[Rfam]
RNA: Fluoride riboswitch aptamer (crcB RNA motif)
RNA sequence: CCCGUGACCGGCGAUGGAGUUCGCCUUUAACCGCCCCGUGGGCUGAUGACUCCUUUUUUGGC
Numbered sequence: 001c002c003c004g005u006g007a008c009c010g011g012c013g014a015u016g017g018a019g020u021u022c023g024c025c026u027u028u029a030a031c032c033g034c035c036c037c038g039u040g041g042g043c044u045g046a047u048g049a050c051u052c053c054u055u056u057u058u059u060g061g062c
Base pairs, nucleotide, nucleotide: 010025011024012023013022016053017052018051019050020049021048033043034042035041